[Rfam]
RNA sequence: CCGUGCUAGACGGGGAGGUAGCGGUGCCCUGUAACUCGCAAUCCGCUGUAGCGAGGUUGAAUUCCUUUUUGAGGUUUCGGCUUUGUAAGGACUGCCCUAAGUAAGUGGUGUUGACGUUUGGGUUCUGCGCAACGGAAACCCAUGAACCCUGUCAGGUCCGGAAGGAAGCAGCAGUAAGUGGAUCCUUUCGUGUGCCGCAGAGGUGCCUGGAUCGAGCUAACUGCUUAGGUAACGCUUAUGAAGUUGUUAUCGAAAAAAGGUGCACGG
Dot-bracket structure: ((((((..(((((((.(.(...).).))))....(((((...........)))))))).....(((((((..(((....((((((((((...((..((((((..(((((......((((((((((((((((.((((((.((((.....((((....(((....)))....))))...)))).)..)))))))...))))))...))))))))...))).)).)))))).))...))))))))))....)))..))))))).))))))
RNA: Bacterial large signal recognition particle RNA